[Rfam]
RNA sequence: GGUUCUUGCGAGACCCCACCUCCUCCCGGGGUCUGUAGCAAAAGCGGUGGCACUUCUCCUCCUCCCUGGUGCCACCGCGUCUU
Numbered sequence: 001g002g003u004u005c006u007u008g009c010g011a012g013a014c015c016c017c018a019c020c021u022c023c024u025c026c027c028g029g030g031g032u033c034u035g036u037a038g039c040a041a042a043a044g045c046g047g048u049g050g051c052a053c054u055u056c057u058c059c060u061c062c063u064c065c066c067u068g069g070u071g072c073c074a075c076c077g078c079g080u081c082u083u
Stems, first nucleotide, its partner, number of pairs: 007037003011034007045077010
Dot-bracket structure: ......(((.(((((((..........)))))))))).......((((((((((.............))))))))))......
RNA: Conserved CCUCCUCCC motif stress-induced RNA 1
Organism: Gemmobacter aquatilis